[Rfam]
RNA sequence: CGGGCCAAGGGGUGCUGCGACGGAUCACGAUCCGCCACGCUUGGUCCGCGAUCUCCCGGCAAGGGCGCCCUUUCCAU
Numbered sequence: 001c002g003g004g005c006c007a008a009g010g011g012g013u014g015c016u017g018c019g020a021c022g023g024a025u026c027a028c029g030a031u032c033c034g035c036c037a038c039g040c041u042u043g044g045u046c047c048g049c050g051a052u053c054u055c056c057c058g059g060c061a062a063g064g065g066c067g068c069c070c071u072u073u074c075c076a077u
Stems, first nucleotide, its partner, number of pairs: 002047007021034005
SAH (S-adenosyl-L-homocysteine) riboswitch aptamer: a 77-nucleotide RNA. Pairs were carried over by alignment from the consensus structure, which is taken from published work. It scores 44 bits against the family's covariance model.